[Rfam]
RNA sequence: GUCAAUCACCCCGCCGUAAACGGCGAGGCUUGGUAAAGCCUCAGAUUGACUAGCCUCAGCGCUUCGCGCGCUCCGUUGGAAUCGUCACGACACCUGGGGAUGCGCGUCCUAGUUCCCAGCCCUGUCGUCCGUGGUUAAAAGUCCUGUGGGGAAGGGACGGUGCUGCGGGCACGACAAGCGAUGCCAACAUUGGCGAAGGACAAUUCAC
Numbered sequence: 001g002u003c004a005a006u007c008a009c010c011c012c013g014c015c016g017u018a019a020a021c022g023g024c025g026a027g028g029c030u031u032g033g034u035a036a037a038g039c040c041u042c043a044g045a046u047u048g049a050c051u052a053g054c055c056u057c058a059g060c061g062c063u064u065c066g067c068g069c070g071c072u073c074c075g076u077u078g079g080a081a082u083c084g085u086c087a088c089g090a091c092a093c094c095u096g097g098g099g100a101u102g103c104g105c106g107u108c109c110u111a112g113u114u115c116c117c118a119g120c121c122c123u124g125u126c127g128u129c130c131g132u133g134g135u136u137a138a139a140a141g142u143c144c145u146g147u148g149g150g151g152a153a154g155g156g157a158c159g160g161u162g163c164u165g166c167g168g169g170c171a172c173g174a175c176a177a178g179c180g181a182u183g184c185c186a187a188c189a190u191u192g193g194c195g196a197a198g199g200a201c202a203a204u205u206c207a208c
Stems, first nucleotide, its partner, number of pairs: 001050007010028002012025002015022002029038003053194003058072005075188005081182005090125002094119008102204001106201005127170009139161001141158005147152001
RNA: HNH endonuclease-associated RNA and ORF (HEARO) RNA
Organism: Sulfobacillus sp. hq2